[Rfam]
RNA sequence: CAUUUAACAGGGCACACCCGUGCGGAAGCCGGCGUCGCAAAGUCAUAGGGUCUUCCGUCCUGAACCGUCGGGACCAGAUAGCCUGACCGCCCCU
Number, nucleotide and partner (000 for none) at each position: 001c000002a000003u000004u000005u000006a000007a000008c000009a000010g000011g000012g038013c037014a000015c000016a000017c000018c032019c031020g030021u000022g029023c028024g000025g000026a000027a000028g023029c022030c020031g019032g018033c000034g000035u000036c000037g013038c012039a000040a000041a000042g087043u086044c085045a000046u000047a084048g083049g082050g079051u078052c077053u000054u000055c000056c000057g074058u073059c072060c071061u070062g069063a068064a000065c000066c000067g000068u063069c062070g061071g060072g059073a058074c057075c000076a000077g052078a051079u050080a000081g000082c049083c048084u047085g044086a043087c042088c000089g000090c000091c000092c000093c000094u000